Source information:
Shown here is a 135-nucleotide sequence from Pongo abelii, a member of the family "U8 small nucleolar RNA". By type it is a C/D-box small nucleolar RNA.

RNA sequence: UCAUCAGGUGGGAUCAUCCUUACCUGUUUCUCCUUUUGGAGGGCAGAUCAGAACAUGAUGAUUGGAGAAGAAUGAAAUGUGAUUAAUAACUCUGUGUAAACAGGCCUUGCAGCACCCUGAUUGAGCCUUUCUGAU
Numbered sequence: 001u002c003a004u005c006a007g008g009u010g011g012g013a014u015c016a017u018c019c020u021u022a023c024c025u026g027u028u029u030c031u032c033c034u035u036u037u038g039g040a041g042g043g044c045a046g047a048u049c050a051g052a053a054c055a056u057g058a059u060g061a062u063u064g065g066a067g068a069a070g071a072a073u074g075a076a077a078u079g080u081g082a083u084u085a086a087u088a089a090c091u092c093u094g095u096g097u098a099a100a101c102a103g104g105c106c107u108u109g110c111a112g113c114a115c116c117c118u119g120a121u122u123g124a125g126c127c128u129u130u131c132u133g134a135u
Stems, first nucleotide, its partner, number of pairs: 024046003028043006074092002078088002080085001097123003101119004
Overview:
It scores 125 bits against the family's covariance model. The family's consensus secondary structure is taken from published work. Taxonomically the source falls in Pongo (Eukaryota, Amniota, Theria, Catarrhini).